The family of this 611-nucleotide RNA is "ROOL RNA". It is one of the family's seed sequences. By type it is a small RNA. From the family's description: Firmicutes, Fusobacteria (1 example), Tenericutes (1 example). The family's consensus secondary structure is taken from published work.
Nucleotides: 611
Base pairs, nucleotide, nucleotide: 007608010605013602015600021593024057025056026055027054028053036050037049038048039047040046059187060186061185062184063183064182089128090127091126092124093123094122096120098119099118100117101116103114105112106111130153131152132151133150134149137146138145139144158170159169160168161167205558206557213547215366216365217364220360221359222358223357225355226323227322228321229320230319231318242252243251244250245249258306259305260304261303262302263301268296269295270294271293284313285312286311287310324389325388326387327386328385334349335348336347337346338345369455375450376449377448378447380445437530438529439528440527459472460471461470475542476541477540478492485491496537497536500533501532504526506523507522508521509520576591577590578589579588
Number, partner (000 for none) and nucleotide at each position: 001000u002000c003000u004000u005000u006000a007608a008000u009000a010605a011000u012000g013602g014000u015600u016000a017000u018000g019000a020000c021593c022000a023000u024057c025056u026055c027054a028053g029000u030000g031000a032000a033000g034000a035000u036050c037049a038048a039047c040046a041000g042000c043000u044000a045000c046040u047039g048038u049037u050036g051000u052000g053028c054027u055026g056025a057024g058000a059187c060186a061185u062184c063183u064182a065000c066000c067000u068000a069000u070000a071000a072000a073000u074000a075000a076000u077000a078000c079000u080000c081000a082000c083000a084000u085000u086000c087000c088000u089128g090127c091126u092124u093123a094122u095000c096120u097000g098119a099118u100117u101116a102000u103114c104000u105112g106111g107000g108000a109000u110000a111106c112105u113000u114103g115000a116101u117100a118099a119098u120096a121000g122094a123093u124092a125000g126091a127090g128089u129000g130153a131152g132151u133150u134149c135000u136000u137146c138145u139144g140000g141000u142000g143000a144139c145138a146137g147000u148000u149134g150133a151132a152131c153130u154000g155000a156000a157000a158170u159169g160168a161167u162000a163000a164000a165000c166000a167161a168160u169159c170158a171000g172000a173000a174000a175000a176000g177000g178000a179000u180000g181000g182064u183063a184062g185061a186060u187059g188000g189000u190000g191000c192000a193000u194000a195000g196000c197000a198000u199000a200000u201000a202000u203000u204000u205558u206557u207000a208000u209000a210000g211000a212000c213547c214000a215366c216365a217364u218000u219000u220360c221359u222358g223357g224000c225355c226323g227322u228321u229320c230319a231318c232000a233000a234000a235000a236000u237000a238000g239000a240000c241000g242252c243251u244250c245249c246000a247000g248000u249245g250244g251243a252242g253000a254000a255000u256000a257000a258306u259305c260304c261303a262302a263301g264000u265000u266000a267000g268296g269295a270294u271293g272000u273000u274000g275000g276000g277000a278000u279000g280000c281000a282000g283000g284313u285312g286311g287310u288000g289000c290000u291000g292000c293271u294270g295269u296268c297000a298000g299000a300000c301263c302262u303261u304260g305259g306258a307000a308000a309000u310287a311286c312285c313284a314000a315000c316000a317000a318231g319230u320229g321228a322227a323226u324389u325388u326387g327386c328385a329000g330000u331000g332000a333000u334349g335348c336347u337346u338345u339000g340000g341000u342000g343000a344000c345338a346337g347336a348335g349334c350000u351000a352000u353000a354000a355225g356000a357223c358222c359221a360220g361000u362000u363000u364217a365216u366215g367000u368000a369455a370000g371000a372000g373000u374000a375450g376449c377448c378447a379000a380445a381000u382000u383000g384000c385328u386327g387326c388325a389324g390000c391000a392000a393000u394000a395000g396000u397000g398000a399000g400000u401000a402000g403000a404000a405000g406000a407000a408000c409000a410000a411000a412000g413000a414000u415000g416000c417000a418000u419000g420000a421000u422000c423000u424000u425000u426000g427000c428000u429000a430000u431000a432000u433000g434000a435000a436000u437530u438529c439528u440527g441000a442000a443000u444000g445380u446000a447378u448377g449376g450375u451000g452000a453000a454000a455369u456000u457000g458000a459472a460471a461470g462000u463000a464000u465000c466000a467000a468000u469000c470461u471460u472459u473000c474000c475542a476541g477540u478492g479000c480000u481000u482000u483000g484000u485491g486000g487000g488000a489000a490000a491485c492478c493000u494000u495000g496537g497536g498000u499000a500533a501532g502000a503000a504526g505000u506523u507522u508521a509520g510000a511000a512000g513000u514000a515000g516000c517000u518000a519000g520509c521508u522507a523506a524000g525000c526504u527440c528439a529438g530437a531000c532501u533500u534000a535000u536497c537496u538000a539000c540477a541476u542475u543000g544000u545000c546000g547213g548000u549000u550000a551000a552000u553000a554000a555000u556000a557206a558205a559000c560000u561000u562000a563000u564000a565000u566000g567000u568000g569000u570000c571000g572000u573000g574000u575000a576591g577590a578589a579588u580000g581000a582000a583000u584000a585000a586000a587000a588579g589578u590577u591576c592000g593021g594000a595000u596000c597000a598000u599000a600015a601000u602013u603000a604000u605010u606000a607000u608007u609000a610000a611000g